Small nucleolar RNA SNORD53/SNORD92: an 84-nucleotide RNA from Clunio marinus. A reference for the family is Kiss-Laszlo et al. (1996), "Site-specific ribose methylation of preribosomal RNA: a novel function for small nucleolar RNAs", Cell. The base pairs follow the family's consensus structure. The family has 37 seed sequences and 2,250 matches in Rfam 15.1.
[Rfam]
RNA sequence: AAUUAUUGAUGAUAUUACUUGUCAUGGUUUCGCAUUUGAAUGAUUUUAAAAAUGAUUCAACUUUUCUCUUGGCUGUCUGAAAUU
Numbered sequence: 001a002a003u004u005a006u007u008g009a010u011g012a013u014a015u016u017a018c019u020u021g022u023c024a025u026g027g028u029u030u031c032g033c034a035u036u037u038g039a040a041u042g043a044u045u046u047u048a049a050a051a052a053u054g055a056u057u058c059a060a061c062u063u064u065u066c067u068c069u070u071g072g073c074u075g076u077c078u079g080a081a082a083u084u
Base pairs, nucleotide, nucleotide: 001084002083003082004081